This 67-nucleotide RNA sequence belongs to the Rfam family "RT-13 RNA". The sequence is in the family's curated seed alignment. The family's RNA type in Rfam is small RNA. The family's consensus secondary structure is taken from published work.
Nucleotides: 067
Stems, first nucleotide, its partner, number of pairs: 007062011020033005035049004
Number, partner (000 for none) and nucleotide at each position: 001000g002000c003000g004000u005000g006000c007062g008061u009060u010059u011058g012057g013056g014055g015054g016053g017052c018000g019000u020033u021032u022031g023030g024029u025000g026000a027000a028000a029024g030023c031022c032021a033020a034000g035049g036048c037047u038046u039000a040000g041000g042000g043000u044000u045000c046038a047037a048036g049035c050000u051000a052017g053016c054015u055014c056013c057012u058011c059010a060009g061008a062007c063000u064000c065000u066000g067000c